The record is a 116-nucleotide RNA from Hypholoma sublateritium, which matches "tRNA" in Rfam. The organism belongs to Hypholoma sublateritium, within Eukaryota. From the family's description: Transfer RNA (tRNA) molecules are approximately 80 nucleotides in length. By type it is a transfer RNA. A search with the family's covariance model found it, with a score of 48 bits.
RNA sequence: GGCAAGAUGGCCGAGCGGUUAAGGCGUGUGACUCAAGCUAAGCUUCCUACUUUGAGUAGGCAACAGCGCAUUCUCAUCACAGUAAUGUGGCGUGGGUUCAAGUCCCACUCUUGUCA
Numbered sequence: 001g002g003c004a005a006g007a008u009g010g011c012c013g014a015g016c017g018g019u020u021a022a023g024g025c026g027u028g029u030g031a032c033u034c035a036a037g038c039u040a041a042g043c044u045u046c047c048u049a050c051u052u053u054g055a056g057u058a059g060g061c062a063a064c065a066g067c068g069c070a071u072u073c074u075c076a077u078c079a080c081a082g083u084a085a086u087g088u089g090g091c092g093u094g095g096g097u098u099c100a101a102g103u104c105c106c107a108c109u110c111u112u113g114u115c116a
Base pairs, nucleotide, nucleotide: 001115002114003113004112005111006110007109010025011024012023027081028080029079030078031077092108093107094106095105096104